RNA sequence: UCAGACGGCCGGACGGUCGCUCCCGCGUGCGCGCCACGCGGGGGAGGAAAGUCCGGGCUCCACGGAAGCACGGUGCCGGGUAACGCCCGGCGGGGGCGACCCCAGGGAAAGUGCCACAGAAAGCAUACCGCCGCGUACGGGGCGUACGGCGCACGUACACCCGCGCGGUAAGGGUGAAAGGGUGCGGUAAGAGCGCACCGCGCCCCUGGCAACAGGGGCGGCCAUGGUAAACCCCACCGGGAGCAAGACCAGAUAGGGGCGGCACGCCGGCCGGCACGCCCGGCCGGCAGGCGAGGCUUCCGCGCCGGCCGCCCGGGUCGGUCGCGCGAGGCGUCCGGUAACGGGCGUCCCAGAGGAAUGGCCGUCACCCGUGACAGGUGUGGGUUCGCCCUGGCCUGGCACGGGCCCACAGAACCCGGCUUACAGGCCGUCUGACCCC
Numbered sequence: 001u002c003a004g005a006c007g008g009c010c011g012g013a014c015g016g017u018c019g020c021u022c023c024c025g026c027g028u029g030c031g032c033g034c035c036a037c038g039c040g041g042g043g044g045a046g047g048a049a050a051g052u053c054c055g056g057g058c059u060c061c062a063c064g065g066a067a068g069c070a071c072g073g074u075g076c077c078g079g080g081u082a083a084c085g086c087c088c089g090g091c092g093g094g095g096g097c098g099a100c101c102c103c104a105g106g107g108a109a110a111g112u113g114c115c116a117c118a119g120a121a122a123g124c125a126u127a128c129c130g131c132c133g134c135g136u137a138c139g140g141g142g143c144g145u146a147c148g149g150c151g152c153a154c155g156u157a158c159a160c161c162c163g164c165g166c167g168g169u170a171a172g173g174g175u176g177a178a179a180g181g182g183u184g185c186g187g188u189a190a191g192a193g194c195g196c197a198c199c200g201c202g203c204c205c206c207u208g209g210c211a212a213c214a215g216g217g218g219c220g221g222c223c224a225u226g227g228u229a230a231a232c233c234c235c236a237c238c239g240g241g242a243g244c245a246a247g248a249c250c251a252g253a254u255a256g257g258g259g260c261g262g263c264a265c266g267c268c269g270g271c272c273g274g275c276a277c278g279c280c281c282g283g284c285c286g287g288c289a290g291g292c293g294a295g296g297c298u299u300c301c302g303c304g305c306c307g308g309c310c311g312c313c314c315g316g317g318u319c320g321g322u323c324g325c326g327c328g329a330g331g332c333g334u335c336c337g338g339u340a341a342c343g344g345g346c347g348u349c350c351c352a353g354a355g356g357a358a359u360g361g362c363c364g365u366c367a368c369c370c371g372u373g374a375c376a377g378g379u380g381u382g383g384g385u386u387c388g389c390c391c392u393g394g395c396c397u398g399g400c401a402c403g404g405g406c407c408c409a410c411a412g413a414a415c416c417c418g419g420c421u422u423a424c425a426g427g428c429c430g431u432c433u434g435a436c437c438c439c
Stems, first nucleotide, its partner, number of pairs: 001435010011424001012366007020044009049422003053419005058243004071239005076090005091105001092103004106234002111232002113228003128173002130169007181199006200222001201220008247323004257314006330349008
The family of this 439-nucleotide RNA from Limimonas halophila is "Bacterial RNase P class A". It is annotated as a ribozyme. The family's consensus secondary structure is taken from published work. Gene Ontology terms of the family: ribonuclease P activity, tRNA processing and dimeric ribonuclease P complex.